RNA sequence: UUGCAAUGAUGAUGAGAAUUAAAUGACCUGAUAUCAUCUGAGCGAUGUUGAUCAGGAGAUGAUCGCUUUAAUCUUCUCUCUGAGCAG
Numbered sequence: 001u002u003g004c005a006a007u008g009a010u011g012a013u014g015a016g017a018a019u020u021a022a023a024u025g026a027c028c029u030g031a032u033a034u035c036a037u038c039u040g041a042g043c044g045a046u047g048u049u050g051a052u053c054a055g056g057a058g059a060u061g062a063u064c065g066c067u068u069u070a071a072u073c074u075u076c077u078c079u080c081u082g083a084g085c086a087g
Stems, first nucleotide, its partner, number of pairs: 001086001003085002036046003